The family of this 54-nucleotide RNA from Coregonus sp. 'balchen' is "UnaL2 LINE 3' element".
Pairs were carried over by alignment from the consensus structure, which is taken from published work.
Rfam describes the family as follows. The eel long interspersed element (LINE) UnaL2 and its partner short interspersed element (SINE) share a conserved 3' tail containing a stem-loop that is critical for their retrotransposition. Presumably, the first step of retrotransposition is the recognition of their 3' tails by UnaL2-encoded reverse transcriptase. The solution structure of a 17-nucleotide RNA derived from the 3' tail of UnaL2 was determined by NMR.
Rfam 15.1 lists 493,311 matches to the family in 99 species.
RNA sequence: AUGCUAACUAACUGUAAGUCGCUCUGGAUAAGAGCGUCUGCUAAAUGACUCAAA
Dot-bracket structure: ............((((...((((((.....))))))..))).)...........